[Rfam]
RNA sequence: GCUCUGGGAGUUGGCAAGAUGUUGGCAUAGCCGAAAACUUUACACGGCUAUUCCACACCGUGCCAGUUCCCUCCGUU
Numbered sequence: 001g002c003u004c005u006g007g008g009a010g011u012u013g014g015c016a017a018g019a020u021g022u023u024g025g026c027a028u029a030g031c032c033g034a035a036a037a038c039u040u041u042a043c044a045c046g047g048c049u050a051u052u053c054c055a056c057a058c059c060g061u062g063c064c065a066g067u068u069c070c071c072u073c074c075g076u077u
Stems, first nucleotide, its partner, number of pairs: 006071011018059001020057002023055003027051005
RNA: mir-31 microRNA precursor family